[Rfam]
RNA sequence: CCGCUUGCAUCCGCCCCGCACAGCGCCUAAUUAUGAGCUGUCGGUUCGCCGACUAUGGACAUAAACGCGCUCGUAAUAAGCGGAUCGGACCCGGGGGCGGUACCCGGCGACUCCACCAAACAUCCUUCGUUGGGGGCAGAUGGGGUCGAAACAGGAUCGACGAACGUCUAAAGGGGUUAGCUUUGUCCCGGUGAGAUACUACCGUUAUCGGUUCGCUAAGCAUAAUUGCCAACGACAAUCGUGCUCCGGUCGCUCUCGCUGCUUAAUGCAGUGCGAAACACCGAAAUCUUAAGCCCUGUCGCCUAGCCGCGUCAGGCGGGGUCCGCAGGCACCUGGCAACAGAAGCCUGCACU
Numbered sequence: 001c002c003g004c005u006u007g008c009a010u011c012c013g014c015c016c017c018g019c020a021c022a023g024c025g026c027c028u029a030a031u032u033a034u035g036a037g038c039u040g041u042c043g044g045u046u047c048g049c050c051g052a053c054u055a056u057g058g059a060c061a062u063a064a065a066c067g068c069g070c071u072c073g074u075a076a077u078a079a080g081c082g083g084a085u086c087g088g089a090c091c092c093g094g095g096g097g098c099g100g101u102a103c104c105c106g107g108c109g110a111c112u113c114c115a116c117c118a119a120a121c122a123u124c125c126u127u128c129g130u131u132g133g134g135g136g137c138a139g140a141u142g143g144g145g146u147c148g149a150a151a152c153a154g155g156a157u158c159g160a161c162g163a164a165c166g167u168c169u170a171a172a173g174g175g176g177u178u179a180g181c182u183u184u185g186u187c188c189c190g191g192u193g194a195g196a197u198a199c200u201a202c203c204g205u206u207a208u209c210g211g212u213u214c215g216c217u218a219a220g221c222a223u224a225a226u227u228g229c230c231a232a233c234g235a236c237a238a239u240c241g242u243g244c245u246c247c248g249g250u251c252g253c254u255c256u257c258g259c260u261g262c263u264u265a266a267u268g269c270a271g272u273g274c275g276a277a278a279c280a281c282c283g284a285a286a287u288c289u290u291a292a293g294c295c296c297u298g299u300c301g302c303c304u305a306g307c308c309g310c311g312u313c314a315g316g317c318g319g320g321g322u323c324c325g326c327a328g329g330c331a332c333c334u335g336g337c338a339a340c341a342g343a344a345g346c347c348u349g350c351a352c353u
Stems, first nucleotide, its partner, number of pairs: 040053005057188005067181002069177004081166002085163003091107005108148007189204004195214002198212003319334004325350006